RNA sequence: GGCAGGAGCCCUGUGUCAAAUUCAGUCCUCAUCCAGCCUGUGCUGGGACUGGCCAAACAGCUGCCACAGCACCAGCUGUAGCUUGUCACCCCCACUGUCCCUUUGCCUCGACCCUGGGGAGAAAUAAAUGCUUCAGCCACCA
Numbered sequence: 001g002g003c004a005g006g007a008g009c010c011c012u013g014u015g016u017c018a019a020a021u022u023c024a025g026u027c028c029u030c031a032u033c034c035a036g037c038c039u040g041u042g043c044u045g046g047g048a049c050u051g052g053c054c055a056a057a058c059a060g061c062u063g064c065c066a067c068a069g070c071a072c073c074a075g076c077u078g079u080a081g082c083u084u085g086u087c088a089c090c091c092c093c094a095c096u097g098u099c100c101c102u103u104u105g106c107c108u109c110g111a112c113c114c115u116g117g118g119g120a121g122a123a124a125u126a127a128a129u130g131c132u133u134c135a136g137c138c139a140c141c142a
Stems, first nucleotide, its partner, number of pairs: 002064004023051006030045002033042001078134001080132003083128001090119005
Small nucleolar RNA SNORA5: a 142-nucleotide RNA from Antrostomus carolinensis. Rfam classes the family as an H/ACA-box small nucleolar RNA. It scores 43 bits against the family's covariance model. Rfam 15.1 lists 2,226 matches to the family in 629 species.